Rfam assigns this 79-nucleotide RNA sequence from Propithecus coquereli to the family "Small nucleolar RNA U2-19".

RNA sequence: GAUCCAUGAUGAACACAGCCAACCCGAGCGUCCGAAUACAUUCCAGUCUGCCUGACGCGUGAGCUCUGCGGCUCUGAGG
Numbered sequence: 001g002a003u004c005c006a007u008g009a010u011g012a013a014c015a016c017a018g019c020c021a022a023c024c025c026g027a028g029c030g031u032c033c034g035a036a037u038a039c040a041u042u043c044c045a046g047u048c049u050g051c052c053u054g055a056c057g058c059g060u061g062a063g064c065u066c067u068g069c070g071g072c073u074c075u076g077a078g079g
Stems, first nucleotide, its partner, number of pairs: 028058005036049001038047002

Its family is annotated with RNA processing and nucleolus in the Gene Ontology.
By type it is a C/D-box small nucleolar RNA.
The base pairs follow the family's consensus structure, which is taken from published work.